[Rfam]
Rfam assigns this 88-nucleotide RNA sequence from Platysteira castanea to the family "Small nucleolar RNA SNORD103/SNORD85". On this family, see Vitali et al., Nucleic Acids Res 2003: "Identification of 13 novel human modification guide RNAs". Rfam classes the family as a C/D-box small nucleolar RNA.

Nucleotides: 088
Stems, first nucleotide, its partner, number of pairs: 001088006
Number, partner (000 for none) and nucleotide at each position: 001088c002087c003086u004085g005084g006083c007000a008000g009000u010000g011000a012000u013000g014000c015000c016000a017000c018000g019000c020000u021000u022000g023000c024000c025000c026000u027000c028000a029000c030000u031000g032000a033000g034000a035000g036000c037000u038000c039000a040000g041000g042000u043000c044000a045000g046000u047000g048000a049000u050000g051000a052000g053000c054000c055000u056000c057000u058000c059000c060000c061000u062000c063000c064000g065000u066000g067000u068000g069000c070000u071000c072000g073000g074000a075000g076000c077000a078000g079000c080000u081000g082000a083006g084005c085004c086003a087002g088001g